RNA: glmS glucosamine-6-phosphate activated ribozyme aptamer
Organism: Aneurinibacillus danicus
RNA sequence: GAUGUCGUAAAAGCGCCAGGACCAUUCUUAUUGGACGGCAAGGGGAAUGGUUGACGAGGUGGAGGUUUAUCGAUGAAUUCGGCGGAUGCCUCCCGGCGGUGGACCGCUGCCGCAGAGCUGUUCAACAAAACGUCAGGGAAACCUGCCGGACAAAAGGACAGCACGGUCUAUA
Numbered sequence: 001g002a003u004g005u006c007g008u009a010a011a012a013g014c015g016c017c018a019g020g021a022c023c024a025u026u027c028u029u030a031u032u033g034g035a036c037g038g039c040a041a042g043g044g045g046a047a048u049g050g051u052u053g054a055c056g057a058g059g060u061g062g063a064g065g066u067u068u069a070u071c072g073a074u075g076a077a078u079u080c081g082g083c084g085g086a087u088g089c090c091u092c093c094c095g096g097c098g099g100u101g102g103a104c105c106g107c108u109g110c111c112g113c114a115g116a117g118c119u120g121u122u123c124a125a126c127a128a129a130a131c132g133u134c135a136g137g138g139a140a141a142c143c144u145g146c147c148g149g150a151c152a153a154a155a156g157g158a159c160a161g162c163a164c165g166g167u168c169u170a171u172a
Stems, first nucleotide, its partner, number of pairs: 020052008029043001061093005070082004094112006117162007131148002134145004